[Rfam]
RNA sequence: CGCUUAGAUAGAGGUCGCACUCUUCAUCAGUACGUGAUCUGAUGUCCCAGGAGGCAGAGGAGGAUCGUGGAAAGGGAACAGUGCCGAAAGGAUAUUCUGCCUGACAGGAUACUCCUUGGGCAUGGCGUGAAUAACGACAUGACUGUCAUCAUUGGAUGGAGCGCUAUCAAGUAU
Numbered sequence: 001c002g003c004u005u006a007g008a009u010a011g012a013g014g015u016c017g018c019a020c021u022c023u024u025c026a027u028c029a030g031u032a033c034g035u036g037a038u039c040u041g042a043u044g045u046c047c048c049a050g051g052a053g054g055c056a057g058a059g060g061a062g063g064a065u066c067g068u069g070g071a072a073a074g075g076g077a078a079c080a081g082u083g084c085c086g087a088a089a090g091g092a093u094a095u096u097c098u099g100c101c102u103g104a105c106a107g108g109a110u111a112c113u114c115c116u117u118g119g120g121c122a123u124g125g126c127g128u129g130a131a132u133a134a135c136g137a138c139a140u141g142a143c144u145g146u147c148a149u150c151a152u153u154g155g156a157u158g159g160a161g162c163g164c165u166a167u168c169a170a171g172u173a174u
Stems, first nucleotide, its partner, number of pairs: 007168005017084005023078003033069008088117005096109003118144002121141004126136003146159005

Lysine riboswitch aptamer: a 174-nucleotide RNA from Roseburia sp. CAG:380.